This 73-nucleotide RNA sequence from Thyridium curvatum belongs to the Rfam family "bZIP non canonical Hac1/Xbp1 intron". For this family Rfam cites "Identification of an Exceptionally Long Intron in the HAC1 Gene of Candida parapsilosis" (Iracane et al., mSphere, 2018). Pairs were carried over by alignment from the consensus structure, which was predicted with RNAfold. About the family: bZIP intron RNA is a non-canonical intron that was first reported in HAC1 gene in yeast and XBP1 gene in Metazoa. It scores 44 bits against the family's covariance model.
RNA sequence: GACUUCUCCCGAUAUGACACAACAUCCUGCAGAGGUGUUGUGCUCCGACCUGCAGUGUCAGUCGGCGGAAGUG
Numbered sequence: 001g002a003c004u005u006c007u008c009c010c011g012a013u014a015u016g017a018c019a020c021a022a023c024a025u026c027c028u029g030c031a032g033a034g035g036u037g038u039u040g041u042g043c044u045c046c047g048a049c050c051u052g053c054a055g056u057g058u059c060a061g062u063c064g065g066c067g068g069a070a071g072u073g
Stems, first nucleotide, its partner, number of pairs: 002072006009065005021039006047059003